[Rfam]
RNA: Small nucleolar RNA SNORD113/SNORD114 family
RNA sequence: UGGACCAAUGAUGAGUACCAUGGGGUAUCUGAAACAGGAUUUUUGAUUAAACCCAUAUGCAAUUCUGAGGUCCAU
Numbered sequence: 001u002g003g004a005c006c007a008a009u010g011a012u013g014a015g016u017a018c019c020a021u022g023g024g025g026u027a028u029c030u031g032a033a034a035c036a037g038g039a040u041u042u043u044u045g046a047u048u049a050a051a052c053c054c055a056u057a058u059g060c061a062a063u064u065c066u067g068a069g070g071u072c073c074a075u
Stems, first nucleotide, its partner, number of pairs: 002073005